[Rfam]
RNA sequence: AGCACUAUUUUUAAACCUGUUGGUGGGAUUCCCUGGCCACCGUGGGUUACGCUGUAGUGCAAAAGAAUCUCCUGGCUCUUGGAGAUAGCUGGCCUUCUGUUUGGCUGGUGCUACUCUGAAGCUGAGGAACAGAG
Numbered sequence: 001a002g003c004a005c006u007a008u009u010u011u012u013a014a015a016c017c018u019g020u021u022g023g024u025g026g027g028a029u030u031c032c033c034u035g036g037c038c039a040c041c042g043u044g045g046g047u048u049a050c051g052c053u054g055u056a057g058u059g060c061a062a063a064a065g066a067a068u069c070u071c072c073u074g075g076c077u078c079u080u081g082g083a084g085a086u087a088g089c090u091g092g093c094c095u096u097c098u099g100u101u102u103g104g105c106u107g108g109u110g111c112u113a114c115u116c117u118g119a120a121g122c123u124g125a126g127g128a129a130c131a132g133a134g
Stems, first nucleotide, its partner, number of pairs: 002060007014048004021042006068129001070128004074123004079118001081116002085109001086107004091102002
This 134-nucleotide RNA from Penelope pileata belongs to the Rfam family "Small nucleolar RNA SNORA46". Its family is annotated with RNA processing and nucleolus in the Gene Ontology. The family's consensus secondary structure was predicted with RNAfold. About the family: ACA46 is a member of the H/ACA class of snoRNA that guide the sites of modification of uridines to pseudouridines. The source organism's lineage runs through Eukaryota, Craniata, Vertebrata, Archelosauria and Penelope. It is annotated as an H/ACA-box small nucleolar RNA.